A member of the RNA family "TPP riboswitch aptamer (THI element)" from Aromatoleum tolulyticum, 110 nucleotides long. The source organism's lineage runs through Bacteria, Pseudomonadati, Pseudomonadota, Rhodocyclales and Aromatoleum. Rfam links the family to the GO term thiamine pyrophosphate binding. Vitamin B(1) in its active form thiamin pyrophosphate (TPP) is an essential coenzyme that is synthesised by coupling of pyrimidine and thiazole moieties in bacteria. The previously detected thiamin-regulatory element, thi box was extended, resulting in a new, highly conserved RNA secondary structure, the THI element, which is widely distributed in eubacteria and also occurs in some archaea. Analysis of operon structures identified a large number of new candidate thiamin-regulated genes, mostly transporters, in various prokaryotic organisms.
RNA sequence: CAACUUACCUAGGGGUCCUUGCAUCCGCCUUCGCGGCGGCUGCAGGGUGAGAAAAACCCUUUGAACCUGAUCCGGGUAAUUCCGGCGAAGGGAAGUGUAGGUCGCUGCCC
Numbered sequence: 001c002a003a004c005u006u007a008c009c010u011a012g013g014g015g016u017c018c019u020u021g022c023a024u025c026c027g028c029c030u031u032c033g034c035g036g037c038g039g040c041u042g043c044a045g046g047g048u049g050a051g052a053a054a055a056a057c058c059c060u061u062u063g064a065a066c067c068u069g070a071u072c073c074g075g076g077u078a079a080u081u082c083c084g085g086c087g088a089a090g091g092g093a094a095g096u097g098u099a100g101g102u103c104g105c106u107g108c109c110c
Base pairs, nucleotide, nucleotide: 006099007098008097010095011060012059013058014057016054017047018046019045020044021043022042023041066091067090068089072085073084074083075082